RNA sequence: UCAGGAGGACGACCUCCCCCACAUGGGAUCAACGCCGGGACGACCCGG
Numbered sequence: 001u002c003a004g005g006a007g008g009a010c011g012a013c014c015u016c017c018c019c020c021a022c023a024u025g026g027g028a029u030c031a032a033c034g035c036c037g038g039g040a041c042g043a044c045c046c047g048g
Base pairs, nucleotide, nucleotide: 004017005016006015007014008013035048036047037046038045039044

This 48-nucleotide RNA from Brevundimonas sp. SH203 belongs to the Rfam family "Guanidine-II riboswitch aptamer (mini-ykkC)". Pairs were carried over by alignment from the consensus structure, which is taken from published work. Rfam 15.1 lists 1,589 matches to the family in 1,229 species.